[Rfam]
RNA sequence: AUUGGUUGAAAAUCACCUGGGUCUCUGGUUAUGGGUGAGAAUCAGCUCCUGGAGCCACCAGGGGCCUCAGUUCACAGCCAACUCUCAAUGUGGGGAGGUGAAACCCAGGCCCCUCAGAGC
Numbered sequence: 001a002u003u004g005g006u007u008g009a010a011a012a013u014c015a016c017c018u019g020g021g022u023c024u025c026u027g028g029u030u031a032u033g034g035g036u037g038a039g040a041a042u043c044a045g046c047u048c049c050u051g052g053a054g055c056c057a058c059c060a061g062g063g064g065c066c067u068c069a070g071u072u073c074a075c076a077g078c079c080a081a082c083u084c085u086c087a088a089u090g091u092g093g094g095g096a097g098g099u100g101a102a103a104c105c106c107a108g109g110c111c112c113c114u115c116a117g118a119g120c
Base pairs, nucleotide, nucleotide: 005046006045007044008043009042013038014037015036016035021030023028061113063111064110065109066108067107072101073100074099075098081091082090
The record is a 120-nucleotide RNA from Catagonus wagneri, which matches "Small nucleolar RNA ACA64" in Rfam. On this family, see Schattner et al., RNA 2006: "A computational screen for mammalian pseudouridylation guide H/ACA RNAs". By type it is an H/ACA-box small nucleolar RNA. The organism belongs to Catagonus, within Eukaryota. A search with the family's covariance model found it, with a score of 82 bits.